[Rfam]
RNA sequence: CUCUAAACCCGAUUACAGUGGAAAUCCUUUUGUCAUCCUGAGCGUAGUCGAAGGACAAAAGAUUGAAACGAAAAGCGGGGCUAUCG
Numbered sequence: 001c002u003c004u005a006a007a008c009c010c011g012a013u014u015a016c017a018g019u020g021g022a023a024a025u026c027c028u029u030u031u032g033u034c035a036u037c038c039u040g041a042g043c044g045u046a047g048u049c050g051a052a053g054g055a056c057a058a059a060a061g062a063u064u065g066a067a068a069c070g071a072a073a074a075g076c077g078g079g080g081c082u083a084u085c086g
Base pairs, nucleotide, nucleotide: 009078010077011076013074014073018069019068023064024063025062026061029059030058031057032056033055034054036052

The family of this 86-nucleotide sequence from Pedobacter polaris is "Flavo-1 RNA". It is annotated as a small RNA. Taxonomically the source falls in Pedobacter (Bacteria, Pseudomonadati, Bacteroidota, Sphingobacteriaceae). The family has 201 seed sequences and 7,497 matches in Rfam 15.1.